Source information: ClpQY promoter: a 58-nucleotide RNA sequence from Escherichia fergusonii. Rfam's curators put it in the seed alignment. For this family Rfam cites "Regulation of clpQ(+)Y(+) (hslV(+)U(+)) gene expression in Escherichia coli" (Lien et al., Open Microbiol J, 2009). By type it is a cis-regulatory element.

RNA sequence: CCCCGCACAAUUGUGCGGGGUUUGAAUUCUGUAUUCCUAACCAAGGGGUCUGCUCGUG
Numbered sequence: 001c002c003c004c005g006c007a008c009a010a011u012u013g014u015g016c017g018g019g020g021u022u023u024g025a026a027u028u029c030u031g032u033a034u035u036c037c038u039a040a041c042c043a044a045g046g047g048g049u050c051u052g053c054u055c056g057u058g
Stems, first nucleotide, its partner, number of pairs: 001020008